Record summary
The record is a 46-nucleotide RNA, which matches "Acido-Lenti-1 RNA" in Rfam. Rfam classes the family as a small RNA.
RNA sequence: CCAGGGGCUUACGCUCCUGGCUAUUUUCUGCCGCCCCUUCGGGGCC
Numbered sequence: 001c002c003a004g005g006g007g008c009u010u011a012c013g014c015u016c017c018u019g020g021c022u023a024u025u026u027u028c029u030g031c032c033g034c035c036c037c038u039u040c041g042g043g044g045c046c
Base pairs, nucleotide, nucleotide: 001020002019003018004017005016006015007014008013033045034044035043036042037041